The record is a 174-nucleotide RNA from Firmicutes bacterium CAG:137, which matches "Group II catalytic intron D1-D4-3" in Rfam. Group II introns are found in rRNA, tRNA and mRNA of organelles in fungi, plants and protists, and also in mRNA in bacteria.

RNA sequence: UCCAUCGCGAGGAGGAAUCUGAAGGAAGGUGUAGGCAAACCUCCGGUCUGACGAACAGAAAUCACAUAUAAGGCCGUAAGCAAGGAUAAGGCUGCAAUGCAAGUCGAAGUCCAAAAACUACCCGGAAUUGCUUUACGGUACAUGUGGCAGAUAGAUGCAUGUAACGAUUAAUCU
Number, nucleotide and partner (000 for none) at each position: 001u016002c015003c014004a000005u012006c011007g000008c000009g000010a000011g006012g005013a000014g003015g002016a001017a000018u000019c000020u000021g000022a000023a000024g000025g000026a000027a000028g174029g173030u000031g000032u170033a000034g000035g000036c166037a000038a000039a000040c161041c000042u159043c000044c157045g156046g152047u151048c150049u149050g148051a000052c000053g000054a000055a000056c000057a000058g000059a000060a000061a000062u147063c146064a145065c144066a143067u142068a000069u000070a000071a000072g000073g139074c138075c137076g000077u000078a133079a132080g131081c130082a129083a128084g112085g111086a110087u109088a000089a000090g105091g104092c103093u102094g000095c000096a000097a000098u000099g000100c000101a000102a093103g092104u091105c090106g000107a000108a000109g087110u086111c085112c084113a000114a000115a000116a000117a000118c000119u000120a000121c000122c000123c000124g000125g000126a000127a000128u083129u082130g081131c080132u079133u078134u000135a000136c000137g075138g074139u073140a000141c000142a067143u066144g065145u064146g063147g062148c050149a049150g048151a047152u046153a000154g000155a000156u045157g044158c000159a042160u000161g040162u000163a000164a000165c000166g036167a000168u000169u000170a032171a000172u000173c029174u028